terC RNA: a 61-nucleotide RNA from Gillisella ampelina. It is annotated as a cis-regulatory element. The base pairs follow the family's consensus structure, which is taken from published work.

RNA sequence: UUAUGGUGCCGGGCCCCUCUGGCGAGAGUUUACGGCGCUCUCGUGAUGUCGGUACCGCCAG
Numbered sequence: 001u002u003a004u005g006g007u008g009c010c011g012g013g014c015c016c017c018u019c020u021g022g023c024g025a026g027a028g029u030u031u032a033c034g035g036c037g038c039u040c041u042c043g044u045g046a047u048g049u050c051g052g053u054a055c056c057g058c059c060a061g
Base pairs, nucleotide, nucleotide: 006055007054008053009052010051011050012049022044023043024042025041026040027039028038029037
The organism belongs to Gillisella ampelina, within Bacteria.